[Rfam]
RNA sequence: AUGUAAAUAGAAGCGCCAGAACUAUUUUUAUAGUUGACGAGGACUGAGAUUAUCGAAAAUUCGGCGGAUGUCUCAGAGGUAGUUGUAACCGUUAUCUACAAAACUACAAAGUGAUUUGUAGGACAAAAGGAUAACCACAAUAUUCU
Numbered sequence: 001a002u003g004u005a006a007a008u009a010g011a012a013g014c015g016c017c018a019g020a021a022c023u024a025u026u027u028u029u030a031u032a033g034u035u036g037a038c039g040a041g042g043a044c045u046g047a048g049a050u051u052a053u054c055g056a057a058a059a060u061u062c063g064g065c066g067g068a069u070g071u072c073u074c075a076g077a078g079g080u081a082g083u084u085g086u087a088a089c090c091g092u093u094a095u096c097u098a099c100a101a102a103a104c105u106a107c108a109a110a111g112u113g114a115u116u117u118g119u120a121g122g123a124c125a126a127a128a129g130g131a132u133a134a135c136c137a138c139a140a141u142a143u144u145c146u
Stems, first nucleotide, its partner, number of pairs: 020035006045075005053064004077084001091135006104121007
RNA: glmS glucosamine-6-phosphate activated ribozyme aptamer
Organism: Fusobacterium sp. FSA-380-WT-3A